Background: Rfam assigns this 102-nucleotide RNA from Calidifontibacillus erzurumensis to the family "Purine riboswitch aptamer". The base pairs follow the family's consensus structure, which is taken from published work. Rfam links the family to the GO term purine nucleobase biosynthetic process. The source organism's lineage runs through Bacteria, Bacilli, Caryophanales, Bacillaceae and Calidifontibacillus.

RNA sequence: CAAAAUUUCAUAAUGAAACUCGAUAUAAUCGCUGGAAUAAGGCCAGCAAGUUUCUACCGGGAAACCGUAAAUUUUCCGACUAUCGAGUAAGCUUCGUUUGGA
Numbered sequence: 001c002a003a004a005a006u007u008u009c010a011u012a013a014u015g016a017a018a019c020u021c022g023a024u025a026u027a028a029u030c031g032c033u034g035g036a037a038u039a040a041g042g043c044c045a046g047c048a049a050g051u052u053u054c055u056a057c058c059g060g061g062a063a064a065c066c067g068u069a070a071a072u073u074u075u076c077c078g079a080c081u082a083u084c085g086a087g088u089a090a091g092c093u094u095c096g097u098u099u100g101g102a
Stems, first nucleotide, its partner, number of pairs: 018088008029049001031047005058078007